[Rfam]
The record is a 49-nucleotide RNA sequence from Oceaniovalibus sp. ACAM 378, which matches "SAM/SAH riboswitch aptamer" in Rfam.

RNA sequence: CACCCGUCGCAACGGCUUCCUGGCGCGGCGGUUCACACCGAUUGGAGCA
Dot-bracket structure: ...(((((((..(([[[.[[))..)))))))............]]]]].

Description:
The base pairs follow the family's consensus structure, which is taken from published work. Its family is annotated with regulation of gene expression and S-adenosylmethionine metabolic process in the Gene Ontology.